[Rfam]
The family of this 74-nucleotide RNA sequence from Haemonchus contortus is "mir-5911 microRNA precursor family". The sequence is in the family's curated seed alignment. Pairs were carried over by alignment from the consensus structure, which was predicted with RNAalifold.
RNA sequence: GAUGGUGUUGUGAGGCUGACUUGCUUGGGAGUUCAUUCAUGUCCCUAAGCGCUUCAUCCUUAUAGACACCUUCA
Numbered sequence: 001g002a003u004g005g006u007g008u009u010g011u012g013a014g015g016c017u018g019a020c021u022u023g024c025u026u027g028g029g030a031g032u033u034c035a036u037u038c039a040u041g042u043c044c045c046u047a048a049g050c051g052c053u054u055c056a057u058c059c060u061u062a063u064a065g066a067c068a069c070c071u072u073c074a
Stems, first nucleotide, its partner, number of pairs: 001073002004070005009064007017056003023050007031042002